[Rfam]
RNA sequence: UGCGAUGAGUCGAGAGAAGAUCAGGUGAUAGAAAUAUCAUUUUGCUGUUAGCAACUAGUGAUCUGCAUUUCGAAGCAGAACACAAUGUCACCGGAAUGUGACGUGUUUGAUAAAGAAUAAUGUGAAUAUU
Numbered sequence: 001u002g003c004g005a006u007g008a009g010u011c012g013a014g015a016g017a018a019g020a021u022c023a024g025g026u027g028a029u030a031g032a033a034a035u036a037u038c039a040u041u042u043u044g045c046u047g048u049u050a051g052c053a054a055c056u057a058g059u060g061a062u063c064u065g066c067a068u069u070u071c072g073a074a075g076c077a078g079a080a081c082a083c084a085a086u087g088u089c090a091c092c093g094g095a096a097u098g099u100g101a102c103g104u105g106u107u108u109g110a111u112a113a114a115g116a117a118u119a120a121u122g123u124g125a126a127u128a129u130u
Stems, first nucleotide, its partner, number of pairs: 019063005024041006042054004079107005087102005116130004121126001
Notes:
This 130-nucleotide RNA from Ligilactobacillus ceti belongs to the Rfam family "Enterococcus sRNA 68 (Lacto-3 RNA)". NCBI's taxonomy places the organism under Bacteria, Bacillati, Bacillota, Lactobacillaceae, Ligilactobacillus ceti. The family's RNA type in Rfam is small RNA.